[Rfam]
RNA sequence: AACCUUCGGGUUGCAGUCUGAGUAGUUUCAGGCUGAUGGCUGGUGACUUUUUGGUCACCAGCCU
Numbered sequence: 001a002a003c004c005u006u007c008g009g010g011u012u013g014c015a016g017u018c019u020g021a022g023u024a025g026u027u028u029c030a031g032g033c034u035g036a037u038g039g040c041u042g043g044u045g046a047c048u049u050u051u052u053g054g055u056c057a058c059c060a061g062c063c064u
Stems, first nucleotide, its partner, number of pairs: 014035005022029001038063010